[Rfam]
RNA: atpB RNA
Organism: Corynebacterium aurimucosum
RNA sequence: UUGCCCUGUUUACGCUGAUGUGCGACGGAGUCCGUAGACAGGGCAAAGAGCUUGAGACGUCCAUCGCACCACAUAGCCUUCGACAAGCUGUGUGGCCCGAACACGGGAGAGAACGCUGAGCGUUACGAC
Numbered sequence: 001u002u003g004c005c006c007u008g009u010u011u012a013c014g015c016u017g018a019u020g021u022g023c024g025a026c027g028g029a030g031u032c033c034g035u036a037g038a039c040a041g042g043g044c045a046a047a048g049a050g051c052u053u054g055a056g057a058c059g060u061c062c063a064u065c066g067c068a069c070c071a072c073a074u075a076g077c078c079u080u081c082g083a084c085a086a087g088c089u090g091u092g093u094g095g096c097c098c099g100a101a102c103a104c105g106g107g108a109g110a111g112a113a114c115g116c117u118g119a120g121c122g123u124u125a126c127g128a129c
Stems, first nucleotide, its partner, number of pairs: 001046012069095009